[Rfam]
RNA sequence: CUCUUAUCCCGAGCUGGUGGAGGGACAGGCCCAAUGAAACCCAGCAACCUGCACGUUUUUAUUUUGAAUAAAAACAUUUGAAGGAAAUGGCGACAUUUUCCGAGGCAAAGGUGCUAACUUGAUGCAAGGCUUAUGCCCUUGACCGAUAAGAG
Number, nucleotide and partner (000 for none) at each position: 001c152002u151003c150004u149005u148006a147007u146008c145009c000010c000011g000012a000013g042014c000015u000016g041017g040018u039019g000020g000021a000022g032023g031024g030025a000026c124027a123028g000029g120030c024031c023032c022033a000034a000035u000036g000037a000038a000039a018040c017041c016042c013043a115044g114045c113046a112047a000048c111049c110050u107051g106052c105053a000054c000055g000056u000057u000058u000059u000060u000061a000062u000063u000064u000065u000066g000067a000068a000069u000070a000071a000072a000073a000074a000075c000076a000077u000078u000079u000080g000081a000082a000083g000084g000085a000086a000087a000088u000089g000090g000091c000092g000093a000094c000095a000096u000097u000098u000099u000100c000101c000102g000103a000104g000105g052106c051107a050108a000109a000110g049111g048112u046113g045114c044115u043116a000117a000118c000119u000120u029121g000122a000123u027124g026125c141126a140127a139128g138129g137130c000131u000132u000133a000134u000135g000136c000137c129138c128139u127140u126141g125142a000143c000144c000145g008146a007147u006148a005149a004150g003151a002152g001

SAM riboswitch aptamer (S box leader): a 152-nucleotide sequence from Peribacillus deserti. The organism belongs to Peribacillus, within Bacteria. The base pairs follow the family's consensus structure, which is taken from published work.